[Rfam]
RNA sequence: AAGUUGAUGUGUGACUGGCGAAGCAUGGAUACCCAUGAGGAAGCACAUCGAUGCAGCAGCCGUACGCCUGGGCAAAGGUA
Numbered sequence: 001a002a003g004u005u006g007a008u009g010u011g012u013g014a015c016u017g018g019c020g021a022a023g024c025a026u027g028g029a030u031a032c033c034c035a036u037g038a039g040g041a042a043g044c045a046c047a048u049c050g051a052u053g054c055a056g057c058a059g060c061c062g063u064a065c066g067c068c069u070g071g072g073c074a075a076a077g078g079u080a
Stems, first nucleotide, its partner, number of pairs: 003052010015040002017068004025036004059073003
The record is an 80-nucleotide RNA sequence from Paenibacillus ferrarius, which matches "ZMP/ZTP riboswitch aptamer (pfl RNA motif)" in Rfam. Pairs were carried over by alignment from the consensus structure, which is taken from published work. Rfam links the family to the GO terms regulation of purine nucleotide biosynthetic process and one-carbon metabolic process. Taxonomically the source falls in Paenibacillus (Bacteria, Bacillati, Bacilli, Caryophanales). It scores 56 bits against the family's covariance model.